[Rfam]
RNA sequence: UGUCUCCUCCAAUUUCCUCCUAAAGAAUUGGAUUCAAGCCCGCAACUUCGGUUGUGGGCUUUUUUUU
Numbered sequence: 001u002g003u004c005u006c007c008u009c010c011a012a013u014u015u016c017c018u019c020c021u022a023a024a025g026a027a028u029u030g031g032a033u034u035c036a037a038g039c040c041c042g043c044a045a046c047u048u049c050g051g052u053u054g055u056g057g058g059c060u061u062u063u064u065u066u067u
Stems, first nucleotide, its partner, number of pairs: 008032007037060008
This 67-nucleotide RNA from Herbaspirillum seropedicae belongs to the Rfam family "Betaproteobacteria toxic small RNA". Rfam's curators write: Overexpression in amino aid rich medium attenuates growth, suggesting role in repressing amino acid intake and metabolism. The family's consensus secondary structure was predicted with WAR. Lineage of the source: Bacteria > Pseudomonadati > Pseudomonadota > Betaproteobacteria > Herbaspirillum seropedicae. A search with the family's covariance model found it, with a score of 61 bits.